This 76-nucleotide RNA sequence from Sphingomonas sp. EC-HK361 belongs to the Rfam family "Fluoride riboswitch aptamer (crcB RNA motif)". Pairs were carried over by alignment from the consensus structure, which is taken from published work.
RNA sequence: GCCGAUCACGGCAAUGGAUUCCUGCCGGGCUCGUCCGAGCCGAACCGCCCGCAAGGCUGAUGAUUCCUACCUGUCG
Numbered sequence: 001g002c003c004g005a006u007c008a009c010g011g012c013a014a015u016g017g018a019u020u021c022c023u024g025c026c027g028g029g030c031u032c033g034u035c036c037g038a039g040c041c042g043a044a045c046c047g048c049c050c051g052c053a054a055g056g057c058u059g060a061u062g063a064u065u066c067c068u069a070c071c072u073g074u075c076g
Stems, first nucleotide, its partner, number of pairs: 010026004016067003020063002047057003